[Rfam]
RNA sequence: AGGUCUUCUGCUUCAACAGUGCUUGAAUGGACCCU
Numbered sequence: 001a002g003g004u005c006u007u008c009u010g011c012u013u014c015a016a017c018a019g020u021g022c023u024u025g026a027a028u029g030g031a032c033c034c035u
Stems, first nucleotide, its partner, number of pairs: 001035003006031003010028001012027005017021001
Dot-bracket structure: (((..(((.(.((((((...).))))))))).)))